[Rfam]
RNA sequence: ACGGUCUGAAAGUCACCUCUGAUCUCCUGUGGCCCUGGUGAGGUAACUGUGCCGACAGCAUGGGGAGCAUUAAGCUUAUUGCCCACGGCGAUGAUGUGUGGGGAGUGAAACCCAUGUUCCUACAAGC
Dot-bracket structure: .....(.(.(..((((....(.((......)).)...))))..)..).)..............(.(((((.....(((((...(((.........))).....))))).....))))).).......